RNA sequence: AGGCUGUGAUGACUGAUAACAUUUCUCGAUCCUGAUAAGGACUAAAGCAAGUCAUUUGCUCAGUGAUGACAGUGUUUGUGCGUGUCUGAGCCUA
Numbered sequence: 001a002g003g004c005u006g007u008g009a010u011g012a013c014u015g016a017u018a019a020c021a022u023u024u025c026u027c028g029a030u031c032c033u034g035a036u037a038a039g040g041a042c043u044a045a046a047g048c049a050a051g052u053c054a055u056u057u058g059c060u061c062a063g064u065g066a067u068g069a070c071a072g073u074g075u076u077u078g079u080g081c082g083u084g085u086c087u088g089a090g091c092c093u094a
Stems, first nucleotide, its partner, number of pairs: 001093004
This 94-nucleotide RNA from Phaseolus vulgaris belongs to the Rfam family "small nucleolar RNA snoR126".
Its family is annotated with nucleolus and RNA processing in the Gene Ontology.
A reference for the family is Chen and Wu (2009), "Mining small RNA sequencing data: a new approach to identify small nucleolar RNAs in Arabidopsis", Nucleic Acids Res.